[Rfam]
RNA sequence: UUAGAUGUGAAUUGAUUUAUGUUUGAGUGUACUCGCUUAAAAGUGAUUCUUAUGAGUUGAUGUUGUUUGAAUUG
Numbered sequence: 001u002u003a004g005a006u007g008u009g010a011a012u013u014g015a016u017u018u019a020u021g022u023u024u025g026a027g028u029g030u031a032c033u034c035g036c037u038u039a040a041a042a043g044u045g046a047u048u049c050u051u052a053u054g055a056g057u058u059g060a061u062g063u064u065g066u067u068u069g070a071a072u073u074g
Stems, first nucleotide, its partner, number of pairs: 011061008021053002025049004030045004
Record summary
MIR5272 microRNA precursor family: a 74-nucleotide sequence from Medicago truncatula. Rfam links the family to the GO terms RISC complex and miRNA-mediated post-transcriptional gene silencing. The family has 6 seed sequences and 271 matches in Rfam 15.1.